[Rfam]
RNA sequence: CCAACGGCUCUUUUAAGAGCCACCAACAUAUUUCAGGGAAAGAGCU
Numbered sequence: 001c002c003a004a005c006g007g008c009u010c011u012u013u014u015a016a017g018a019g020c021c022a023c024c025a026a027c028a029u030a031u032u033u034c035a036g037g038g039a040a041a042g043a044g045c046u
Stems, first nucleotide, its partner, number of pairs: 006021006
Rfam assigns this 46-nucleotide sequence from Equus caballus to the family "Histone 3' UTR stem-loop".
Rfam 15.1 lists 44,596 matches to the family in 976 species.
It scores 39 bits against the family's covariance model.
A reference for the family is Zhang et al. (2014), "Molecular mechanisms for the regulation of histone mRNA stem-loop-binding protein by phosphorylation", Proc Natl Acad Sci U S A.
The mRNAs of metazoan histone genes lack a poly-A tail. 3' end processing occurs at a site between a highly conserved stem-loop (modelled by this family) and a purine rich region around 20 nts downstream (the histone downstream element, or HDE).